Record summary: The record is a 214-nucleotide RNA from Tianweitania populi, which matches "permuted transfer-messenger RNA" in Rfam. Rfam describes the family as follows. Bacterial tmRNA, also known as 10Sa RNA or SsrA, is named for its dual tRNA and mRNA-like properties. A search with the family's covariance model found it, with a score of 144 bits. By type it is a non-coding RNA gene.
RNA sequence: GGAAAUAAACGGCCGUUGAAAUAAGCCAUUCGGACCCGGGGGCGGUACCCGGCGCCUCCACCACGAACCGCUCCUUUGAGCGGCUGGUGCUGGGGGCGAAAUAGGAUCGACGAGGGUGUAAAGAGCGGACUUUUUCCCGGCAUUGUACCACCGUUAUCGGGCUACAACUGUAGUUGCAAACGACAACUAUGCGGAAGCACGUCUCGCCGCUUAA
Numbered sequence: 001g002g003a004a005a006u007a008a009a010c011g012g013c014c015g016u017u018g019a020a021a022u023a024a025g026c027c028a029u030u031c032g033g034a035c036c037c038g039g040g041g042g043c044g045g046u047a048c049c050c051g052g053c054g055c056c057u058c059c060a061c062c063a064c065g066a067a068c069c070g071c072u073c074c075u076u077u078g079a080g081c082g083g084c085u086g087g088u089g090c091u092g093g094g095g096g097c098g099a100a101a102u103a104g105g106a107u108c109g110a111c112g113a114g115g116g117u118g119u120a121a122a123g124a125g126c127g128g129a130c131u132u133u134u135u136c137c138c139g140g141c142a143u144u145g146u147a148c149c150a151c152c153g154u155u156a157u158c159g160g161g162c163u164a165c166a167a168c169u170g171u172a173g174u175u176g177c178a179a180a181c182g183a184c185a186a187c188u189a190u191g192c193g194g195a196a197g198c199a200c201g202u203c204u205c206g207c208c209g210c211u212u213a214a
Stems, first nucleotide, its partner, number of pairs: 001137005014127004026116002030113003036052005053098007138153003